[Rfam]
RNA sequence: CUCUGGAAAGCAGGCAGGCGGCCGAGGCCGUCUUCCUCACCGAAGGGGUAAGGCGGGAGAGAGGUUCUCUCCGGCGCAAUCUCUCAGGUUCCGUGACAGAG
Numbered sequence: 001c002u003c004u005g006g007a008a009a010g011c012a013g014g015c016a017g018g019c020g021g022c023c024g025a026g027g028c029c030g031u032c033u034u035c036c037u038c039a040c041c042g043a044a045g046g047g048g049u050a051a052g053g054c055g056g057g058a059g060a061g062a063g064g065u066u067c068u069c070u071c072c073g074g075c076g077c078a079a080u081c082u083c084u085c086a087g088g089u090u091c092c093g094u095g096a097c098a099g100a101g
Stems, first nucleotide, its partner, number of pairs: 001101005012037003039089003042085002046083003053075001
The record is a 101-nucleotide RNA from Minwuia thermotolerans, which matches "Glycine riboswitch aptamer" in Rfam. The base pairs follow the family's consensus structure. Its Rfam clan is "Glycine riboswitch clan". A search with the family's covariance model found it, with a score of 35 bits. This family represents the bacterial glycine riboswitch. The organism belongs to Minwuia, within Bacteria. The literature on the family includes a 2004 paper in Science by Mandal et al., "A glycine-dependent riboswitch that uses cooperative binding to control gene expression".